[Rfam]
RNA sequence: UUACAAUUAAAGGAUAUUUCUUGAGAUGACACUAACGGAAAUAUCUCUUAAUUGUUUGGU
Numbered sequence: 001u002u003a004c005a006a007u008u009a010a011a012g013g014a015u016a017u018u019u020c021u022u023g024a025g026a027u028g029a030c031a032c033u034a035a036c037g038g039a040a041a042u043a044u045c046u047c048u049u050a051a052u053u054g055u056u057u058g059g060u
Base pairs, nucleotide, nucleotide: 003055004054005053006052007051008050009049010048012046013045014044015043016042017041018040019039020038021037024033025032
RNA: mir-7552 microRNA precursor family
Organism: Triplophysa tibetana